[Rfam]
RNA sequence: CAUCCUGCAGGUGAUGGAGUCCACCUUUAACCGCUUUUUCUGGCUGAUGACUCCUGCAUAAUA
Number, nucleotide and partner (000 for none) at each position: 001c000002a000003u000004c000005c000006u000007g000008c000009a000010g025011g024012u023013g022014a000015u000016g054017g053018a052019g051020u050021c049022c013023a012024c011025c010026u000027u000028u000029a000030a000031c000032c000033g044034c043035u042036u000037u000038u000039u000040c000041u000042g035043g034044c033045u000046g000047a000048u000049g021050a020051c019052u018053c017054c016055u000056g000057c000058a000059u000060a000061a000062u000063a000

Description: The record is a 63-nucleotide RNA sequence, which matches "Fluoride riboswitch aptamer (crcB RNA motif)" in Rfam. It is one of the family's seed sequences. The base pairs follow the family's consensus structure, which is taken from published work.